RNA sequence: AGCUGGUCUGAGUGCAGUGGUGUUUACAACCAGUUACAGAUUUCUUUGUUUCAUCUCUACUCCCACUUCUUCACUUGACUAGCCUUGA
Numbered sequence: 001a002g003c004u005g006g007u008c009u010g011a012g013u014g015c016a017g018u019g020g021u022g023u024u025u026a027c028a029a030c031c032a033g034u035u036a037c038a039g040a041u042u043u044c045u046u047u048g049u050u051u052c053a054u055c056u057c058u059a060c061u062c063c064c065a066c067u068u069c070u071u072c073a074c075u076u077g078a079c080u081a082g083c084c085u086u087g088a
Stems, first nucleotide, its partner, number of pairs: 002083007010076002014072001016067005022062001028050003032046002

A member of the RNA family "Y RNA" from Saimiri boliviensis, 88 nucleotides long. The match comes from Rfam's covariance-model search (62 bits). The organism belongs to Saimiri boliviensis, within Eukaryota. The base pairs follow the family's consensus structure, which is taken from published work.